[Rfam]
RNA sequence: UGGAGAAGGGGAGCACGUGCAAAGAGUUAACUGGCAUCUGAGAGAGCCAAGUGCAUUGCACGUGCCCUGCUUCUCCAAC
Numbered sequence: 001u002g003g004a005g006a007a008g009g010g011g012a013g014c015a016c017g018u019g020c021a022a023a024g025a026g027u028u029a030a031c032u033g034g035c036a037u038c039u040g041a042g043a044g045a046g047c048c049a050a051g052u053g054c055a056u057u058g059c060a061c062g063u064g065c066c067c068u069g070c071u072u073c074u075c076c077a078a079c
Stems, first nucleotide, its partner, number of pairs: 001077008010068002013065010024054001
RNA: MIR164 microRNA precursor family